[Rfam]
RNA sequence: CUCUUAUCCAGAGCGGCGGAGGGACUGGCCCGAUGAAGCCCGGCAACCUCGAUGUGAAUCCCACAUCGGAUGGUGCCAAUUCCUGCAGGAACGAUUGUUCCUGAAAGAUAAGAG
Numbered sequence: 001c002u003c004u005u006a007u008c009c010a011g012a013g014c015g016g017c018g019g020a021g022g023g024a025c026u027g028g029c030c031c032g033a034u035g036a037a038g039c040c041c042g043g044c045a046a047c048c049u050c051g052a053u054g055u056g057a058a059u060c061c062c063a064c065a066u067c068g069g070a071u072g073g074u075g076c077c078a079a080u081u082c083c084u085g086c087a088g089g090a091a092c093g094a095u096u097g098u099u100c101c102u103g104a105a106a107g108a109u110a111a112g113a114g
Base pairs, nucleotide, nucleotide: 001114002113003112004111005110006109007108008107013041015040016039017038021031022030023029025085027083028082042077043076044075045074047073048072049069050068051067052066053065054064055063081106086103087102088101089100090099091098
Rfam assigns this 114-nucleotide RNA sequence from Paenactinomyces guangxiensis to the family "SAM riboswitch aptamer (S box leader)". A search with the family's covariance model found it, with a score of 100 bits. Rfam links the family to the GO term regulation of gene expression. Rfam describes the family as follows. The SAM riboswitch is found upstream of a number of genes which code for proteins involved in methionine or cysteine biosynthesis in Gram-positive bacteria. The SAM riboswitch acts at the level of transcription termination control. NCBI's taxonomy places the organism under Bacteria, Bacillati, Bacillota, Bacilli, Paenactinomyces.